[Rfam]
RNA sequence: GUAAAGGGGAGUGAGAUUCUUCCCCACCGAUAGCCUAAGGUUUCCCCGGGAAGGCCAAUCCGCCGGGGGUUAGUCGGCCCCUAAGACGAGGCUAAGAAUGCGUAGUCGAUGGGAAGCAGGUUCAUAUUCCUGCACCGAGUAAAUUGUGCGAUGGAGUGACGCAGGAGGAUAGUUAGUGCGGCUUAUUGGUUGCCGUUGCGAGUAGUAGGCAUUGAGAGUGAUUGGAAAAUCCGUCACUUGAGCUGAGAACUCGCGGGAUCCUAACGAAUGUUAGGCGUAGCUUUCGACUCCAAGCUGCCAAGAAAUAGCUUCUAAGUUUAGGUUUAUUCGACCGUACCGCAAACCGACACAGGUAGGCAAGUAGAGAAUACUAAGGUGUU
Numbered sequence: 001g002u003a004a005a006g007g008g009g010a011g012u013g014a015g016a017u018u019c020u021u022c023c024c025c026a027c028c029g030a031u032a033g034c035c036u037a038a039g040g041u042u043u044c045c046c047c048g049g050g051a052a053g054g055c056c057a058a059u060c061c062g063c064c065g066g067g068g069g070u071u072a073g074u075c076g077g078c079c080c081c082u083a084a085g086a087c088g089a090g091g092c093u094a095a096g097a098a099u100g101c102g103u104a105g106u107c108g109a110u111g112g113g114a115a116g117c118a119g120g121u122u123c124a125u126a127u128u129c130c131u132g133c134a135c136c137g138a139g140u141a142a143a144u145u146g147u148g149c150g151a152u153g154g155a156g157u158g159a160c161g162c163a164g165g166a167g168g169a170u171a172g173u174u175a176g177u178g179c180g181g182c183u184u185a186u187u188g189g190u191u192g193c194c195g196u197u198g199c200g201a202g203u204a205g206u207a208g209g210c211a212u213u214g215a216g217a218g219u220g221a222u223u224g225g226a227a228a229a230u231c232c233g234u235c236a237c238u239u240g241a242g243c244u245g246a247g248a249a250c251u252c253g254c255g256g257g258a259u260c261c262u263a264a265c266g267a268a269u270g271u272u273a274g275g276c277g278u279a280g281c282u283u284u285c286g287a288c289u290c291c292a293a294g295c296u297g298c299c300a301a302g303a304a305a306u307a308g309c310u311u312c313u314a315a316g317u318u319u320a321g322g323u324u325u326a327u328u329c330g331a332c333c334g335u336a337c338c339g340c341a342a343a344c345c346g347a348c349a350c351a352g353g354u355a356g357g358c359a360a361g362u363a364g365a366g367a368a369u370a371c372u373a374a375g376g377u378g379u380u
Stems, first nucleotide, its partner, number of pairs: 006024006025378004033358004039338002044068006053061002075334003080112002085107003089103001091101002093098001116133005136330010148317002153312005161298004167291003172285001175282002178196005197256001201251003208244003216239007224232002258278002261274005344353002360372004
A member of the RNA family "Bacterial large subunit ribosomal RNA" from Leptospira interrogans, 380 nucleotides of a longer RNA. The organism belongs to Leptospira interrogans serovar Copenhageni, within Bacteria. The sequence is in the family's curated seed alignment.